[Rfam]
RNA sequence: CCGCCCGUCGCUACUACCGAUCGGAUGGUUUAGUGAGGUCCUCGGAUCGGCCCCGCCGGGGCUCCUCGCGGGCCUUGGCGGAGCGCCGAGAAGUCGAUCAAACUUGACUAUCUAGAGGAAGUAAAAGUCGUAACAAGGUUUCCGUAGGUGAACCUGCGGAAGGAUCAUUA
Dot-bracket structure: (.(..((.(..((((.((..(.((((((((.(((..((((..(...(((((.(((((.((((((.....)))))).)))))...)))))...)..))))..))).)))))))))..)).))))...).))...)..).((((((((((....))))))))))........
A member of the RNA family "Eukaryotic small subunit ribosomal RNA" from Silurus meridionalis, 170 nucleotides of a longer RNA.
The family is grouped with related families in Rfam's "SSU clan".
Gene Ontology terms of the family: ribosome and structural constituent of ribosome.
Lineage of the source: Eukaryota > Bilateria > Neopterygii > Siluroidei > Silurus.
The match comes from Rfam's covariance-model search (1650 bits).